[Rfam]
RNA sequence: GAGUCUAACAUCGAUGCGAGUGUUUGGGUGUCAAACCCAUGCGCGGAAUGAAAGUGAACGGAGGUGGGAACCCUUAAGGGCGCACCAUCGACCGAUCCGGAAGUUUACGGAUGGAUUUGAGUAUGAGCAUAGCUGUUGGGACCCGAAAGAUGGUGAACUAUGCCUGAAUAGGGUGAAGCCAGAGGAAACUCUGGUGGAGGCUCGCAGCGGUUCUGACGUGCAAAUCGAUCGUCAAAUUUGGGUAUAGGGGCGAAAGACUAAUCGAACCAUCUAGUAGCUGGUU
Numbered sequence: 001g002a003g004u005c006u007a008a009c010a011u012c013g014a015u016g017c018g019a020g021u022g023u024u025u026g027g028g029u030g031u032c033a034a035a036c037c038c039a040u041g042c043g044c045g046g047a048a049u050g051a052a053a054g055u056g057a058a059c060g061g062a063g064g065u066g067g068g069a070a071c072c073c074u075u076a077a078g079g080g081c082g083c084a085c086c087a088u089c090g091a092c093c094g095a096u097c098c099g100g101a102a103g104u105u106u107a108c109g110g111a112u113g114g115a116u117u118u119g120a121g122u123a124u125g126a127g128c129a130u131a132g133c134u135g136u137u138g139g140g141a142c143c144c145g146a147a148a149g150a151u152g153g154u155g156a157a158c159u160a161u162g163c164c165u166g167a168a169u170a171g172g173g174u175g176a177a178g179c180c181a182g183a184g185g186a187a188a189c190u191c192u193g194g195u196g197g198a199g200g201c202u203c204g205c206a207g208c209g210g211u212u213c214u215g216a217c218g219u220g221c222a223a224a225u226c227g228a229u230c231g232u233c234a235a236a237u238u239u240g241g242g243u244a245u246a247g248g249g250g251c252g253a254a255a256g257a258c259u260a261a262u263c264g265a266a267c268c269a270u271c272u273a274g275u276a277g278c279u280g281g282u283u
Stems, first nucleotide, its partner, number of pairs: 005139006012132001014130004020044003025039005048055002063089005071080002091122002093119003096115003103108001142281002145278001149271006158247011169235001171203004178195007207232004212228002215226002249259002
This 283-nucleotide part of an RNA from Ramalina farinacea belongs to the Rfam family "Eukaryotic large subunit ribosomal RNA". Taxonomically the source falls in Ramalina (Eukaryota, Fungi, Lecanorales, Lecanorineae). Pairs were carried over by alignment from the consensus structure, which is taken from published work.